Rfam assigns this 86-nucleotide RNA from Solanum tuberosum to the family "MIR8024 microRNA precursor family". The family's consensus secondary structure was predicted with RNAalifold. The family has 2 seed sequences and 661 matches in Rfam 15.1.
RNA sequence: UUGGAGGAUUUGAAGAGUUCUACUUGCAAACUUGACAAAUUUGAAGACUUGAACUUGCAGAGUUGGAGGAUUAGAAGACUUCAACU
Numbered sequence: 001u002u003g004g005a006g007g008a009u010u011u012g013a014a015g016a017g018u019u020c021u022a023c024u025u026g027c028a029a030a031c032u033u034g035a036c037a038a039a040u041u042u043g044a045a046g047a048c049u050u051g052a053a054c055u056u057g058c059a060g061a062g063u064u065g066g067a068g069g070a071u072u073a074g075a076a077g078a079c080u081u082c083a084a085c086u
Stems, first nucleotide, its partner, number of pairs: 001084006009076003013072002018067003025059004032053002035050001
The match comes from Rfam's covariance-model search (73 bits).